[Rfam]
RNA sequence: ACUCAACACUAAUCUAUUAUGAAGGAUAAGUCUUAGUUGCUAAAGCAUGCCGUCUUAGAAUGGAUCCUUGAUCAACUAGUUAGUCCUAUAAUUACCAUAAUGGAGUUU
Numbered sequence: 001a002c003u004c005a006a007c008a009c010u011a012a013u014c015u016a017u018u019a020u021g022a023a024g025g026a027u028a029a030g031u032c033u034u035a036g037u038u039g040c041u042a043a044a045g046c047a048u049g050c051c052g053u054c055u056u057a058g059a060a061u062g063g064a065u066c067c068u069u070g071a072u073c074a075a076c077u078a079g080u081u082a083g084u085c086c087u088a089u090a091a092u093u094a095c096c097a098u099a100a101u102g103g104a105g106u107u108u
Stems, first nucleotide, its partner, number of pairs: 023087005034078005043069003050063004
A member of the RNA family "6S-Flavo RNA" from Polaribacter marinus, 108 nucleotides long. Taxonomically the source falls in Polaribacter (Bacteria, Bacteroidota, Flavobacteriia, Flavobacteriales). A search with the family's covariance model found it, with a score of 96 bits.